[Rfam]
RNA: Small nucleolar RNA SNORA5
Organism: Pygoscelis papua
RNA sequence: GGCAGCCCCAUCAAAUUGAGCGCCAUCCGCUGCGGUCGGUGCUGGCCCAGCCGGCUGCUACGGAAAUACCUGCAGCUCGUGGGCCCCACGUCGUGGGAUCGCGGGAUGGUUUGGGUGGGAAGGGACCU
Numbered sequence: 001g002g003c004a005g006c007c008c009c010a011u012c013a014a015a016u017u018g019a020g021c022g023c024c025a026u027c028c029g030c031u032g033c034g035g036u037c038g039g040u041g042c043u044g045g046c047c048c049a050g051c052c053g054g055c056u057g058c059u060a061c062g063g064a065a066a067u068a069c070c071u072g073c074a075g076c077u078c079g080u081g082g083g084c085c086c087c088a089c090g091u092c093g094u095g096g097g098a099u100c101g102c103g104g105g106a107u108g109g110u111u112u113g114g115g116u117g118g119g120a121a122g123g124g125a126c127c128u
Stems, first nucleotide, its partner, number of pairs: 002058004019043006027035002071120001073118001075116003084105003089101002